[Rfam]
RNA sequence: UUCUUAUCAAGAGCAGGCGGAGGGACUAGCCCGAUGAAGCCCGGCAACCGGCGUGAAAACGCACGGUGCUAAUUCUUGCGGAAACGAUUUUUGUUUCUGAGAGAUGAGAG
Numbered sequence: 001u002u003c004u005u006a007u008c009a010a011g012a013g014c015a016g017g018c019g020g021a022g023g024g025a026c027u028a029g030c031c032c033g034a035u036g037a038a039g040c041c042c043g044g045c046a047a048c049c050g051g052c053g054u055g056a057a058a059a060c061g062c063a064c065g066g067u068g069c070u071a072a073u074u075c076u077u078g079c080g081g082a083a084a085c086g087a088u089u090u091u092u093g094u095u096u097c098u099g100a101g102a103g104a105u106g107a108g109a110g
Base pairs, nucleotide, nucleotide: 001110002109003108004107005106006105007104008103013042016041017040018039022032023031024030026078028076029075043070044069045068046067048066049065051062052061053060054059074102079099080098081097082096083095084094085093086092